[Rfam]
RNA: mraW RNA
Organism: Saccharothrix australiensis
RNA sequence: GGUUUCGGGUGCCGUGAGGCCUCGGUCCGCUCGGCUUUCGGCCCUGGCGCACCUUCCCCGGCGCCAGGUCCGACGGGCGGGCGGGGACCUGACGACACCCGAAUUUCUUU
Numbered sequence: 001g002g003u004u005u006c007g008g009g010u011g012c013c014g015u016g017a018g019g020c021c022u023c024g025g026u027c028c029g030c031u032c033g034g035c036u037u038u039c040g041g042c043c044c045u046g047g048c049g050c051a052c053c054u055u056c057c058c059c060g061g062c063g064c065c066a067g068g069u070c071c072g073a074c075g076g077g078c079g080g081g082c083g084g085g086g087a088c089c090u091g092a093c094g095a096c097a098c099c100c101g102a103a104u105u106u107c108u109u110u
Stems, first nucleotide, its partner, number of pairs: 010097002013094003018089002021086003025082008038073004043068008